RNA: t44 RNA
Organism: Woeseia oceani
RNA sequence: CCCUUGAGGCAAUUAAUCCACACGUACAUCGACACAUCGCGCUGGGUGCCCCACCUGAAAAGGGGUUGCGGGAUGGGAUGUACGGAGGCCAAAC
Dot-bracket structure: ......................((((((((....((((.(((.....(((((.........))))).))).)))).))))))))..........